[Rfam]
RNA sequence: AGCAUUUAUUUGUGUCUUUGAUAAUCUGUAACAAAGCCAUACAGACAGGUGAAGUAAAUCCUCGUUUGCACCCCAGAACUCAUUGCUAAGAAUGACAUUUUGGUACACGUAAGAAGGAAUAUG
Numbered sequence: 001a002g003c004a005u006u007u008a009u010u011u012g013u014g015u016c017u018u019u020g021a022u023a024a025u026c027u028g029u030a031a032c033a034a035a036g037c038c039a040u041a042c043a044g045a046c047a048g049g050u051g052a053a054g055u056a057a058a059u060c061c062u063c064g065u066u067u068g069c070a071c072c073c074c075a076g077a078a079c080u081c082a083u084u085g086c087u088a089a090g091a092a093u094g095a096c097a098u099u100u101u102g103g104u105a106c107a108c109g110u111a112a113g114a115a116g117g118a119a120u121a122u123g
Stems, first nucleotide, its partner, number of pairs: 003051005009045001011043001014038001016036005025030001058120002061117002065113004074102005080095004
The family of this 123-nucleotide RNA from Dipodomys ordii is "Small nucleolar RNA SNORA40". NCBI's taxonomy places the organism under Eukaryota, Chordata, Eutheria, Heteromyidae, Dipodomys. The snoRNA ACA 40 belongs to the H/ACA family of snoRNAs and guides the pseudouridylation of 28S rRNA subunit at position U4565. NB This family has a high threshold value to exclude a large number of closely related sequences that do not appear to have conserved H and ACA boxes, and may be pseudogenes. A search with the family's covariance model found it, with a score of 67 bits. Rfam classes the family as an H/ACA-box small nucleolar RNA.